[Rfam]
RNA: Streptomyces-metH RNA
RNA sequence: CCGUCCGCCCUUCGGAAUGCCUUCGAGGCCCGGCACCCCGGACGGCUACUCUGGCCAGGUGCGCCAUCCGUCCCCCGGGGAAGGACAGCGCAUAGCCGACAGCCGUCGCACCCCAGGGAGCACCUCCAUG
Number, nucleotide and partner (000 for none) at each position: 001c000002c000003g000004u000005c000006c000007g000008c000009c000010c000011u000012u000013c000014g000015g000016a000017a000018u000019g000020c000021c000022u000023u000024c000025g000026a000027g000028g000029c000030c000031c000032g000033g000034c000035a000036c000037c000038c000039c000040g000041g000042a000043c000044g000045g000046c000047u000048a000049c000050u000051c000052u000053g000054g000055c000056c000057a000058g000059g000060u092061g091062c090063g089064c000065c000066a000067u000068c000069c000070g086071u085072c084073c083074c000075c000076c000077g000078g000079g000080g000081a000082a000083g073084g072085a071086c070087a000088g000089c063090g062091c061092a060093u000094a000095g109096c108097c000098g107099a106100c105101a000102g000103c000104c000105g100106u099107c098108g096109c095110a000111c000112c000113c000114c000115a000116g000117g000118g000119a000120g000121c000122a000123c000124c000125u000126c000127c000128a000129u000130g000